[Rfam]
RNA sequence: GGAGGAAGCAUCCAAAGGGAUCGCAUUGAUCCAUCAUUCCUUCCAUUCUUUCAUGGCUGGUCGUCCUCUACAAGGACUUCUCGACGGAUCAUGCGAUCCUUUUGGAGGCUUCCCC
Numbered sequence: 001g002g003a004g005g006a007a008g009c010a011u012c013c014a015a016a017g018g019g020a021u022c023g024c025a026u027u028g029a030u031c032c033a034u035c036a037u038u039c040c041u042u043c044c045a046u047u048c049u050u051u052c053a054u055g056g057c058u059g060g061u062c063g064u065c066c067u068c069u070a071c072a073a074g075g076a077c078u079u080c081u082c083g084a085c086g087g088a089u090c091a092u093g094c095g096a097u098c099c100u101u102u103u104g105g106a107g108g109c110u111u112c113c114c115c
Base pairs, nucleotide, nucleotide: 002115004113005112006111008109009108011106012105013104014103015102016101017100018099019098020097021096023094024093025092026091028090029089030088031087032086

The record is a 115-nucleotide sequence from Miscanthus lutarioriparius, which matches "mir-393 microRNA precursor family" in Rfam.
Gene Ontology terms of the family: RISC complex and miRNA-mediated post-transcriptional gene silencing.
NCBI's taxonomy places the organism under Eukaryota, commelinids, Poales, Panicoideae, Miscanthus.
A search with the family's covariance model found it, with a score of 80 bits.